[Rfam]
RNA sequence: UGAAAUCACUUCUGUAAGUUGCUCUGGAUAAGGGCGUCUGCCAAAUGCCAUGAA
Numbered sequence: 001u002g003a004a005a006u007c008a009c010u011u012c013u014g015u016a017a018g019u020u021g022c023u024c025u026g027g028a029u030a031a032g033g034g035c036g037u038c039u040g041c042c043a044a045a046u047g048c049c050a051u052g053a054a
Base pairs, nucleotide, nucleotide: 013043014041015040016039020036021035022034023033024032025031
Shown here is a 54-nucleotide sequence from Hemibagrus wyckioides, a member of the family "UnaL2 LINE 3' element". By type it is a cis-regulatory element. The literature on the family includes a 2004 paper in RNA by Baba et al., "Solution structure of an RNA stem-loop derived from the 3' conserved region of eel LINE UnaL2". The source organism's lineage runs through Eukaryota, Actinopterygii, Actinopteri, Otophysi and Hemibagrus. The family's consensus secondary structure is taken from published work. The eel long interspersed element (LINE) UnaL2 and its partner short interspersed element (SINE) share a conserved 3' tail containing a stem-loop that is critical for their retrotransposition.